[Rfam]
RNA sequence: UGACCCUUUAAUGAAGUACAGCGAGACUUCAAAGGGUGUUUAAGCGGCAAGCGGGACUGCGCUUGCCGUGCACCCUUGUAAUCUUGCAAGGGUGCUUUUUUU
Numbered sequence: 001u002g003a004c005c006c007u008u009u010a011a012u013g014a015a016g017u018a019c020a021g022c023g024a025g026a027c028u029u030c031a032a033a034g035g036g037u038g039u040u041u042a043a044g045c046g047g048c049a050a051g052c053g054g055g056a057c058u059g060c061g062c063u064u065g066c067c068g069u070g071c072a073c074c075c076u077u078g079u080a081a082u083c084u085u086g087c088a089a090g091g092g093u094g095c096u097u098u099u100u101u102u
Stems, first nucleotide, its partner, number of pairs: 003037007013030005046067008068097001070095011
RNA: PyrR binding site
Organism: Salisediminibacterium halotolerans